[Rfam]
A member of the RNA family "mir-219 microRNA precursor family" from Pangasianodon hypophthalmus, 80 nucleotides long. Taxonomically the source falls in Pangasianodon (Eukaryota, Neopterygii, Ostariophysi, Characiphysae).
RNA sequence: UGAGCUACUGAUUGUCCAAACGCAAUUCUUGUGACUGUCGAGUUGUAAAUCGAGAAUUGUGCAUGGACAUCUGUUGCUGC
Numbered sequence: 001u002g003a004g005c006u007a008c009u010g011a012u013u014g015u016c017c018a019a020a021c022g023c024a025a026u027u028c029u030u031g032u033g034a035c036u037g038u039c040g041a042g043u044u045g046u047a048a049a050u051c052g053a054g055a056a057u058u059g060u061g062c063a064u065g066g067a068c069a070u071c072u073g074u075u076g077c078u079g080c
Base pairs, nucleotide, nucleotide: 003078004077005076007074010071011070012069014068015067016066017065018064021061022060023059024058025057026056027055028054029053030052031051
The match comes from Rfam's covariance-model search (68 bits).